[Rfam]
RNA sequence: ACUGGAAGCUGUUGGGACAAGUCGUGGGCAAAACAAGUGUUUUGUCCAGCCUUGCAGUCUUCCUAGAGUAAAGUGGAGGUCUCUGUCUGCUUUAGGAGAGCCAACUAAACUGGAUCGUUCCCCUCCAUACAUG
Numbered sequence: 001a002c003u004g005g006a007a008g009c010u011g012u013u014g015g016g017a018c019a020a021g022u023c024g025u026g027g028g029c030a031a032a033a034c035a036a037g038u039g040u041u042u043u044g045u046c047c048a049g050c051c052u053u054g055c056a057g058u059c060u061u062c063c064u065a066g067a068g069u070a071a072a073g074u075g076g077a078g079g080u081c082u083c084u085g086u087c088u089g090c091u092u093u094a095g096g097a098g099a100g101c102c103a104a105c106u107a108a109a110c111u112g113g114a115u116c117g118u119u120c121c122c123c124u125c126c127a128u129a130c131a132u133g
Base pairs, nucleotide, nucleotide: 004063005062006061008058009057010056011055012054025048026047027046028045029044032041033040034039075126076125077124078123079122083117085115086114087113089111091109092108093107094106095105
Overview
A member of the RNA family "Small Cajal body specific RNA 3" from Phasianus colchicus, 133 nucleotides long. Lineage of the source: Eukaryota > Chordata > Teleostomi > Archosauria > Phasianus. The base pairs follow the family's consensus structure, which was predicted with RNAalifold. It scores 102 bits against the family's covariance model. Rfam's curators write: scaRNAs are a specific class of small nuclear RNAs which localise to the Cajal bodies and guide the modification of RNA polymerase II transcribed spliceosomal RNAs U1, U2, U4, U5 and U12. Rfam classes the family as a small Cajal body RNA. On this family, see Darzacq et al., EMBO J 2002: "Cajal body-specific small nuclear RNAs: a novel class of 2'-O-methylation and pseudouridylation guide RNAs".